[Rfam]
RNA: Bacterial large signal recognition particle RNA
Organism: Peptoclostridium acidaminophilum
RNA sequence: CUGUGCUAGAUGGGGAGUUAGCGGUGCCCUGUACCUGCAAUCCGCUGUAGCAGGGUCGAAUGCCAUAUUGAGGCUCACUAGCUGUAGAGCAGCUCCAAAAAAGUGAUGAUGAUUGUCGGGUCCUGCGCAAUAGAGAUUCAUGAACCCCGUCAGAUCCGGAAGGAAGCAGCGGUAAGUGAUCCCCUCUAUGUGCCGCGGGAGCGCCUGAUAUGAGUUAACUCUUUGGGAGGCGUCUGUGGCUUUGAGUCGAAUUAUGGCUGCACAG
Dot-bracket structure: ((((((..(((((((.(((...))).))))...(((((...........))))))))....(((.((.(..(((((...(((((((((...((.(((((...(((((......((((((((((((((((.(((((..((((.....((((....(((....)))....))))...))))....)))))))...))))))...))))))))...))).))..)))))...)).)))))))))..)))))..).)).))).))))))
Numbered sequence: 001c002u003g004u005g006c007u008a009g010a011u012g013g014g015g016a017g018u019u020a021g022c023g024g025u026g027c028c029c030u031g032u033a034c035c036u037g038c039a040a041u042c043c044g045c046u047g048u049a050g051c052a053g054g055g056u057c058g059a060a061u062g063c064c065a066u067a068u069u070g071a072g073g074c075u076c077a078c079u080a081g082c083u084g085u086a087g088a089g090c091a092g093c094u095c096c097a098a099a100a101a102a103g104u105g106a107u108g109a110u111g112a113u114u115g116u117c118g119g120g121u122c123c124u125g126c127g128c129a130a131u132a133g134a135g136a137u138u139c140a141u142g143a144a145c146c147c148c149g150u151c152a153g154a155u156c157c158g159g160a161a162g163g164a165a166g167c168a169g170c171g172g173u174a175a176g177u178g179a180u181c182c183c184c185u186c187u188a189u190g191u192g193c194c195g196c197g198g199g200a201g202c203g204c205c206u207g208a209u210a211u212g213a214g215u216u217a218a219c220u221c222u223u224u225g226g227g228a229g230g231c232g233u234c235u236g237u238g239g240c241u242u243u244g245a246g247u248c249g250a251a252u253u254a255u256g257g258c259u260g261c262a263c264a265g
Stems, first nucleotide, its partner, number of pairs: 001265006009057003012030004017025003034054005062258003066254002069251001072248005080241009092231002095226005103219002105216003114210008122199006128190002131188005138179004147172004155164003